Small Cajal body specific RNA 8: a 128-nucleotide RNA sequence from Steinernema hermaphroditum. The organism belongs to Steinernema, within Eukaryota. Rfam describes the family as follows. scaRNAs are a specific class of small nuclear RNAs which localise to the Cajal bodies and guide the modification of RNA polymerase II transcribed spliceosomal RNAs U1, U2, U4, U5 and U12. U92 belong to the H/ACA box class of guide RNAs as it has the predicted hairpin-hinge-hairpin-tail structure, conserved H/ACA-box motifs and is found associated with GAR1. Its family is annotated with Cajal body, nucleolus and RNA processing in the Gene Ontology.

RNA sequence: UCGGACACGAUACCCAGGUUAUUUUUCUCACCAAAUAACUUGGCACUUAAUGUCCGUAUAGCAUCAUGUUCUUUGAUAACCCUGAACGCUUAAACUACGGCUUUGGGGACAGAACGGAACAAACAAAC
Numbered sequence: 001u002c003g004g005a006c007a008c009g010a011u012a013c014c015c016a017g018g019u020u021a022u023u024u025u026u027c028u029c030a031c032c033a034a035a036u037a038a039c040u041u042g043g044c045a046c047u048u049a050a051u052g053u054c055c056g057u058a059u060a061g062c063a064u065c066a067u068g069u070u071c072u073u074u075g076a077u078a079a080c081c082c083u084g085a086a087c088g089c090u091u092a093a094a095c096u097a098c099g100g101c102u103u104u105g106g107g108g109a110c111a112g113a114a115c116g117g118a119a120c121a122a123a124c125a126a127a128c
Stems, first nucleotide, its partner, number of pairs: 002056006014043004021036004067121006080108003085103002